[Rfam]
RNA sequence: AUGUACCCAUAGGUACAUUCCGGUUCCUGUGCGCCGUCCGCCUUGCCCGCAGUCCGCUCGCUACGCCCUUGACGCC
Numbered sequence: 001a002u003g004u005a006c007c008c009a010u011a012g013g014u015a016c017a018u019u020c021c022g023g024u025u026c027c028u029g030u031g032c033g034c035c036g037u038c039c040g041c042c043u044u045g046c047c048c049g050c051a052g053u054c055c056g057c058u059c060g061c062u063a064c065g066c067c068c069u070u071g072a073c074g075c076c
Stems, first nucleotide, its partner, number of pairs: 002017005021036004026031001047074001050071003
RNA: Xanthomonas sRNA sX9
Organism: Polaromonas sp. Pch-P